[Rfam]
RNA sequence: CGGGGGUCCAAUCUAAUUCUGCAUAGUGGUUUAAUUAUGUAGUCUCGCUUUUGGACCAGAACAAUCACCAUCCUUUAUUAUCCUUGUGCUUGUGACAAUAUCAGUCUAAUGCACACGAGAAACGUAAAAGAACAUUA
Numbered sequence: 001c002g003g004g005g006g007u008c009c010a011a012u013c014u015a016a017u018u019c020u021g022c023a024u025a026g027u028g029g030u031u032u033a034a035u036u037a038u039g040u041a042g043u044c045u046c047g048c049u050u051u052u053g054g055a056c057c058a059g060a061a062c063a064a065u066c067a068c069c070a071u072c073c074u075u076u077a078u079u080a081u082c083c084u085u086g087u088g089c090u091u092g093u094g095a096c097a098a099u100a101u102c103a104g105u106c107u108a109a110u111g112c113a114c115a116c117g118a119g120a121a122a123c124g125u126a127a128a129a130g131a132a133c134a135u136u137a
Base pairs, nucleotide, nucleotide: 005057006056007055008054009053010052019042020041021040022039023038024037025036026035027033028032071131072130074128075127076126077125078124083119084118085117086116087115088114
Dot-bracket structure: ....((((((........((((((((((...)).)))))))).........)))))).............((.(((((....((((((.........................))))))....))))).))......